[Rfam]
U4 spliceosomal RNA: a 155-nucleotide RNA from Spermophilus dauricus. For this family Rfam cites "The uRNA database" (Zwieb, Nucleic Acids Res, 1997). Lineage of the source: Eukaryota > Theria > Rodentia > Xerinae > Spermophilus. It scores 91 bits against the family's covariance model. By type it is a spliceosomal small nuclear RNA.
RNA sequence: AGCUUUGCGCAGUGGCAGUAUUGUAGCCAAUGAGGUUUAUCCGAGGCGCGAUUAUUGCUAAUUGAAAACUUUUCCCAAUACCCUGCCAUGACGACUUGAAAUAUAGUCGGGAUUCUGCAAUCUGUAUUUGGGGUAAAAAUGGGAGUUCAUAACCC
Numbered sequence: 001a002g003c004u005u006u007g008c009g010c011a012g013u014g015g016c017a018g019u020a021u022u023g024u025a026g027c028c029a030a031u032g033a034g035g036u037u038u039a040u041c042c043g044a045g046g047c048g049c050g051a052u053u054a055u056u057g058c059u060a061a062u063u064g065a066a067a068a069c070u071u072u073u074c075c076c077a078a079u080a081c082c083c084u085g086c087c088a089u090g091a092c093g094a095c096u097u098g099a100a101a102u103a104u105a106g107u108c109g110g111g112a113u114u115c116u117g118c119a120a121u122c123u124g125u126a127u128u129u130g131g132g133g134u135a136a137a138a139a140u141g142g143g144a145g146u147u148c149a150u151a152a153c154c155c
Stems, first nucleotide, its partner, number of pairs: 020052005026047003034042002085118002088113002092109005131155004